[Rfam]
The family of this 109-nucleotide sequence from Punica granatum is "Small nucleolar RNA snoR99". It is annotated as an H/ACA-box small nucleolar RNA.

RNA sequence: UUGCUCUAGGGAUGAACAAGUCCCUCACAUGGAACUCUCAAUCCAUCUGCUUCACUUUGUCAUAAGUUAUUUUUCACUCUCUUGCUGAUCAUUGGCCAAUGGAAUAUCC
Numbered sequence: 001u002u003g004c005u006c007u008a009g010g011g012a013u014g015a016a017c018a019a020g021u022c023c024c025u026c027a028c029a030u031g032g033a034a035c036u037c038u039c040a041a042u043c044c045a046u047c048u049g050c051u052u053c054a055c056u057u058u059g060u061c062a063u064a065a066g067u068u069a070u071u072u073u074u075c076a077c078u079c080u081c082u083u084g085c086u087g088a089u090c091a092u093u094g095g096c097c098a099a100u101g102g103a104a105u106a107u108c109c
Stems, first nucleotide, its partner, number of pairs: 042103005059089004065083002
The family has 9 seed sequences and 733 matches in Rfam 15.1. It scores 62 bits against the family's covariance model.